[Rfam]
RNA: MIR2912 microRNA precursor family
RNA sequence: UCUAGAACUUGAGAAAUGGGUUGAACACUGAGCAGUGUCUGGGUUACAGGUCAUAUUUGGACUUCUCUGAUGUUGUUAUAAUUUGGACUUGAAAAUAGUCUUCUUAGAUCUUGGCCUCCACAUGAAAGAUGUAGGCCUAUGUCUUACUGAAUUUGUGU
Numbered sequence: 001u002c003u004a005g006a007a008c009u010u011g012a013g014a015a016a017u018g019g020g021u022u023g024a025a026c027a028c029u030g031a032g033c034a035g036u037g038u039c040u041g042g043g044u045u046a047c048a049g050g051u052c053a054u055a056u057u058u059g060g061a062c063u064u065c066u067c068u069g070a071u072g073u074u075g076u077u078a079u080a081a082u083u084u085g086g087a088c089u090u091g092a093a094a095a096u097a098g099u100c101u102u103c104u105u106a107g108a109u110c111u112u113g114g115c116c117u118c119c120a121c122a123u124g125a126a127a128g129a130u131g132u133a134g135g136c137c138u139a140u141g142u143c144u145u146a147c148u149g150a151a152u153u154u155g156u157g158u
Base pairs, nucleotide, nucleotide: 002157005154006153007152008149009146011145012144013143014142016140017139018138019137020136021134022133023132025130028128029127035123036122037121041119042118043117048112049111050110055104059100060099062098063097068092072088073087074086